[Rfam]
RNA: Small nucleolar RNA SNORD74
RNA sequence: GUUCCCUGCCUCUGAUGAAGCCUGUGUUGGUAGGGACAUCUGAGAAUGUUGAUGAAUGCCAACUGCUCUGAUGGCCGAAC
Numbered sequence: 001g002u003u004c005c006c007u008g009c010c011u012c013u014g015a016u017g018a019a020g021c022c023u024g025u026g027u028u029g030g031u032a033g034g035g036a037c038a039u040c041u042g043a044g045a046a047u048g049u050u051g052a053u054g055a056a057u058g059c060c061a062a063c064u065g066c067u068c069u070g071a072u073g074g075c076c077g078a079a080c
Stems, first nucleotide, its partner, number of pairs: 001080004